A member of the RNA family "rncO" from Citrobacter rodentium, 217 nucleotides long. By type it is a cis-regulatory element. For this family Rfam cites "RNase III autoregulation: structure and function of rncO, the posttranscriptional 'operator'" (Matsunaga et al., RNA, 1996). From the family's description: This family represents a bacterial regulatory element (rncO) found in the rnc leader sequence. The rnc operon is negatively auto-regulated by transcript stability. rnc, the first gene in the operon codes for RNase III which cleaves the long rncO stem II leading to transcript degradation and a reduction in translation.
RNA sequence: GAAGUUUAAGGCUGGCGGCUGUUGGUCGCCACGGCACACGAAACAGCGUUGGUUCCCCUAUGUAAACGUAUUGCAGCCGGUGUAACACGGCUGGCGGAAUACGCUGUAUAUCAGGUCUGUUUCGUGUGCUGAAUUGUUGACGCAUUUAUUUAUUGGUAUCGCAUGAACCCCAUCGUAAUUAAUCGGCUUCAACGGAAGCUGGGCUACACUUUUACUC
Numbered sequence: 001g002a003a004g005u006u007u008a009a010g011g012c013u014g015g016c017g018g019c020u021g022u023u024g025g026u027c028g029c030c031a032c033g034g035c036a037c038a039c040g041a042a043a044c045a046g047c048g049u050u051g052g053u054u055c056c057c058c059u060a061u062g063u064a065a066a067c068g069u070a071u072u073g074c075a076g077c078c079g080g081u082g083u084a085a086c087a088c089g090g091c092u093g094g095c096g097g098a099a100u101a102c103g104c105u106g107u108a109u110a111u112c113a114g115g116u117c118u119g120u121u122u123c124g125u126g127u128g129c130u131g132a133a134u135u136g137u138u139g140a141c142g143c144a145u146u147u148a149u150u151u152a153u154u155g156g157u158a159u160c161g162c163a164u165g166a167a168c169c170c171c172a173u174c175g176u177a178a179u180u181a182a183u184c185g186g187c188u189u190c191a192a193c194g195g196a197a198g199c200u201g202g203g204c205u206a207c208a209c210u211u212u213u214a215c216u217c
Base pairs, nucleotide, nucleotide: 013031014030015029016028017027019024032131033130034129035128036127037126038125039124040123041122042121043120044119045118046117055115056114059110060109061108062107063106071097072096073095075092076091077090078089079088183202184201185200186199187198188197189196190195